A member of the RNA family "Plastid-rpl16 group II-D1 intron" from Phoenix dactylifera, 47 nucleotides long.
Rfam's curators write: Plastid-rpl16 is a non-coding RNA (ncRNA) recognised in plastids. It was recognised in and intronic region of a ribosome rpl16 gene.
The organism belongs to Phoenix, within Eukaryota.
Its family is annotated with Group II intron splicing in the Gene Ontology.
A reference for the family is Richter et al. (2023), "Retrograde signaling in plants: A critical review focusing on the GUN pathway and beyond", Plant Commun.
RNA sequence: AAGAGCCUCAGGUUAAUAGAAACUGAGGAGGUUGACUUAAGAACAAA
Number, nucleotide and partner (000 for none) at each position: 001a000002a000003g000004a000005g000006c000007c041008u040009c000010a038011g037012g036013u035014u034015a033016a032017u031018a000019g000020a000021a000022a000023c000024u000025g000026a000027g000028g000029a000030g000031g017032u016033u015034g014035a013036c012037u011038u010039a000040a008041g007042a000043a000044c000045a000046a000047a000